[Rfam]
RNA sequence: UAUCGUAUGAAAAUAGCCAAAUUUGAGCAUCAGAAGACCUUCCAGUCUACCUAAUACAUGAUCUCUGGAGUUCUGAGA
Numbered sequence: 001u002a003u004c005g006u007a008u009g010a011a012a013a014u015a016g017c018c019a020a021a022u023u024u025g026a027g028c029a030u031c032a033g034a035a036g037a038c039c040u041u042c043c044a045g046u047c048u049a050c051c052u053a054a055u056a057c058a059u060g061a062u063c064u065c066u067g068g069a070g071u072u073c074u075g076a077g078a
Base pairs, nucleotide, nucleotide: 027057029055030054035048036047037046038045
Annotation:
A member of the RNA family "Small nucleolar RNA U2-19" from Neomonachus schauinslandi, 78 nucleotides long. A reference for the family is Tycowski et al. (2004), "Guide RNAs with 5' Caps and Novel Box C/D snoRNA-like Domains for Modification of snRNAs in Metazoa", Curr Biol. Lineage of the source: Eukaryota > Euteleostomi > Mammalia > Eutheria > Neomonachus.